[Rfam]
RNA sequence: GGAAAGUUGAGAAGAGUUGCUCCUAGUACGAGAGGACCGGAGUGAACGAACCACUGGUGUUCGGGUUGUCAUGCCAAUGGCAUUGCCCGGUAGCUAUGUUCGGACGGGAUAACCGCUGAAAGCAUCUAAGCGGGAAGCCUCCUUCAAGAUUAGCUUUCCCUGGGGCUUGACCCCCUAAAGGGCCGUUGAAGACUACGACGUUGAUAGGUCGGGUGUGGAAGCGCUGUGAGGCGUUGAGCUAACCGAUACUAAUUGCCCGUGAG
Numbered sequence: 001g002g003a004a005a006g007u008u009g010a011g012a013a014g015a016g017u018u019g020c021u022c023c024u025a026g027u028a029c030g031a032g033a034g035g036a037c038c039g040g041a042g043u044g045a046a047c048g049a050a051c052c053a054c055u056g057g058u059g060u061u062c063g064g065g066u067u068g069u070c071a072u073g074c075c076a077a078u079g080g081c082a083u084u085g086c087c088c089g090g091u092a093g094c095u096a097u098g099u100u101c102g103g104a105c106g107g108g109a110u111a112a113c114c115g116c117u118g119a120a121a122g123c124a125u126c127u128a129a130g131c132g133g134g135a136a137g138c139c140u141c142c143u144u145c146a147a148g149a150u151u152a153g154c155u156u157u158c159c160c161u162g163g164g165g166c167u168u169g170a171c172c173c174c175c176u177a178a179a180g181g182g183c184c185g186u187u188g189a190a191g192a193c194u195a196c197g198a199c200g201u202u203g204a205u206a207g208g209u210c211g212g213g214u215g216u217g218g219a220a221g222c223g224c225u226g227u228g229a230g231g232c233g234u235u236g237a238g239c240u241a242a243c244c245g246a247u248a249c250u251a252a253u254u255g256c257c258c259g260u261g262a263g
Stems, first nucleotide, its partner, number of pairs: 001159008011145004017045007047102005055096003062089005067082006106140003113133005162175003177260001180258004184200005205251003208247005215239001218235001221234005
Dot-bracket structure: ((((((((..((((..(((((((...............))))))).(((((...(((....(((((((((((....))))))..)))))....))).)))))...(((....(((((...........)))))....))).))))......))))))))..(((........))).(..(((((((((.......)))))....((((((((..(..(..(((((....))))))...)...))))).)))...)))).)...
Bacterial large subunit ribosomal RNA: a 263-nucleotide part of an RNA from Saccharophagus degradans. The match comes from Rfam's covariance-model search (2876 bits).